[Rfam]
RNA sequence: AGGUUUCCUGCUUCAGCAGUGCUUGGACGGAAGCUG
Dot-bracket structure: ((.(((((.(.((((((...).))))))))))))).